A member of the RNA family "Actino-pnp RNA" from Nakamurella aerolata, 69 nucleotides long. The match comes from Rfam's covariance-model search (53 bits).

RNA sequence: GCCGGUUUUCGGUAGUGGCCGCCAGGAUCCGGCACUCAUCGGCUCCGGCGGCUUCGAUCGAAGGCCGGC
Dot-bracket structure: (((((((.(((((...(((((((.(.(..(...........).)).)))))))...))))).)))))))